[Rfam]
RNA: int-alpA RNA
Organism: Candidatus Methylaffinis lahnbergensis
Nucleotides: 067
Base pairs, nucleotide, nucleotide: 001055002054003053004052005051006050007049008048011022012021013020014019028045029044030043031042032041039066
Number, partner (000 for none) and nucleotide at each position: 001055c002054a003053c004052g005051u006050g007049g008048c009000u010000a011022g012021c013020u014019c015000g016000a017000c018000g019014g020013g021012g022011c023000g024000a025000a026000a027000g028045c029044c030043g031042g032041a033000u034000u035000g036000c037000a038000u039066c040000a041032u042031c043030c044029g045028g046000u047000u048008g049007c050006c051005a052004c053003g054002u055001g056000u057000c058000c059000c060000u061000u062000u063000g064000a065000u066039g067000c